The record is a 263-nucleotide sequence from Oxyruncus cristatus, which matches "Small Cajal body specific RNA 6" in Rfam. The base pairs follow the family's consensus structure, which is taken from published work. Gene Ontology terms of the family: nucleolus and RNA processing. The match comes from Rfam's covariance-model search (120 bits). U88 is small Cajal body specific RNA (scaRNA). scaRNAs are a novel class of small nuclear RNAs which localise to the Cajal bodies. U88 is found associated with both fibrillarin and Gar1p and co-localises with coilin in Cajal bodies.
RNA sequence: GGUCUGUGAUGAAUAGUAAAAGGUCUGAUUAUCCCAGGACUUGCACUUCCGUGACCUUUUCUCCCAGCAGUUUCUCACCAGUCAUGGCACAGUAAUGUUGUGGCUGGCAGAGUGUUUGCUGACAGCUUGAGAUGUGCUCAGUUCAUGUUAACCUGGAGUAUCAGAGACAUGGCUGGGAUCAGCAUCCUACAGUCCUGCUUCAAGGAGUUUGGGGUCUUGGAUUGUUCUAACUGGACCUGUGAUCUGACUUUUGUGCUGAGACC
Numbered sequence: 001g002g003u004c005u006g007u008g009a010u011g012a013a014u015a016g017u018a019a020a021a022g023g024u025c026u027g028a029u030u031a032u033c034c035c036a037g038g039a040c041u042u043g044c045a046c047u048u049c050c051g052u053g054a055c056c057u058u059u060u061c062u063c064c065c066a067g068c069a070g071u072u073u074c075u076c077a078c079c080a081g082u083c084a085u086g087g088c089a090c091a092g093u094a095a096u097g098u099u100g101u102g103g104c105u106g107g108c109a110g111a112g113u114g115u116u117u118g119c120u121g122a123c124a125g126c127u128u129g130a131g132a133u134g135u136g137c138u139c140a141g142u143u144c145a146u147g148u149u150a151a152c153c154u155g156g157a158g159u160a161u162c163a164g165a166g167a168c169a170u171g172g173c174u175g176g177g178a179u180c181a182g183c184a185u186c187c188u189a190c191a192g193u194c195c196u197g198c199u200u201c202a203a204g205g206a207g208u209u210u211g212g213g214g215u216c217u218u219g220g221a222u223u224g225u226u227c228u229a230a231c232u233g234g235a236c237c238u239g240u241g242a243u244c245u246g247a248c249u250u251u252u253g254u255g256c257u258g259a260g261a262c263c
Base pairs, nucleotide, nucleotide: 001263002262003261004260035246036245037244038243040241048221049220050219051218053216054215061207062206063205064204065121066120067119068118069117070116078107079106080105081104082103083102084101085100086099129187131186132185133184134183135182144171145170146169147168148167149166153164154163155162